[Rfam]
Rfam assigns this 179-nucleotide RNA from Halalkalibacillus sediminis to the family "Lysine riboswitch aptamer". NCBI's taxonomy places the organism under Bacteria, Bacilli, Caryophanales, Bacillaceae, Halalkalibacillus.
RNA sequence: AGUAAGGGUAGAGGUGCGGAAACCAUUAGUAUUUAUGUGUAGGAGUAAUGAGAUCCGGGUAAGCAUAAAGAAAGGGGAAUUCGCCGAAGUGAAUAGAGACUCAUCUCUUGAAGCUGGUUCUGACAUUGAAUAAAUGCAGGGCUGUCAUAUAGGAAACUAUAUGGAGGGCUAUCUGGUUU
Numbered sequence: 001a002g003u004a005a006g007g008g009u010a011g012a013g014g015u016g017c018g019g020a021a022a023c024c025a026u027u028a029g030u031a032u033u034u035a036u037g038u039g040u041a042g043g044a045g046u047a048a049u050g051a052g053a054u055c056c057g058g059g060u061a062a063g064c065a066u067a068a069a070g071a072a073a074g075g076g077g078a079a080u081u082c083g084c085c086g087a088a089g090u091g092a093a094u095a096g097a098g099a100c101u102c103a104u105c106u107c108u109u110g111a112a113g114c115u116g117g118u119u120c121u122g123a124c125a126u127u128g129a130a131u132a133a134a135u136g137c138a139g140g141g142c143u144g145u146c147a148u149a150u151a152g153g154a155a156a157c158u159a160u161a162u163g164g165a166g167g168g169c170u171a172u173c174u175g176g177u178u179u
Stems, first nucleotide, its partner, number of pairs: 006174006016084005023077002032069007088115003095108005116143007124136004145164007